Purine riboswitch aptamer: a 104-nucleotide RNA from Bacillus sp. 7884-1. The base pairs follow the family's consensus structure, which is taken from published work.
RNA sequence: AAUAAUACUAAUAACAUUAUUCGUAUAUACUCGGUAAUACGGUCCGAGUGUUUCUACCUGGUUCCCAUUAUAUGAACUAGACUACGAGUUAAAGUAUUUGGUGG
Numbered sequence: 001a002a003u004a005a006u007a008c009u010a011a012u013a014a015c016a017u018u019a020u021u022c023g024u025a026u027a028u029a030c031u032c033g034g035u036a037a038u039a040c041g042g043u044c045c046g047a048g049u050g051u052u053u054c055u056a057c058c059u060g061g062u063u064c065c066c067a068u069u070a071u072a073u074g075a076a077c078u079a080g081a082c083u084a085c086g087a088g089u090u091a092a093a094g095u096a097u098u099u100g101g102u103g104g
Stems, first nucleotide, its partner, number of pairs: 019089007029049006058080007
NCBI's taxonomy places the organism under Bacteria, Bacillota, Bacilli, Caryophanales, Bacillus. Rfam describes the family as follows. Riboswitches are metabolite binding domains within certain messenger RNAs that serve as precision sensors for their corresponding targets.